[Rfam]
RNA: tRNA
Organism: Melghirimyces algeriensis
RNA sequence: GGAGAGGUGUCCGAGUGGCUUAAGGAGGCGGUCUCGAAAACCGUUGUGCGGUUUACGCCGUACCGUGGGUUCAAAUCCCACCCUCUCCG
Numbered sequence: 001g002g003a004g005a006g007g008u009g010u011c012c013g014a015g016u017g018g019c020u021u022a023a024g025g026a027g028g029c030g031g032u033c034u035c036g037a038a039a040a041c042c043g044u045u046g047u048g049c050g051g052u053u054u055a056c057g058c059c060g061u062a063c064c065g066u067g068g069g070u071u072c073a074a075a076u077c078c079c080a081c082c083c084u085c086u087c088c089g
Base pairs, nucleotide, nucleotide: 001088002087003086004085005084006083007082010026011025012024028044029043030042031041032040065081066080067079068078069077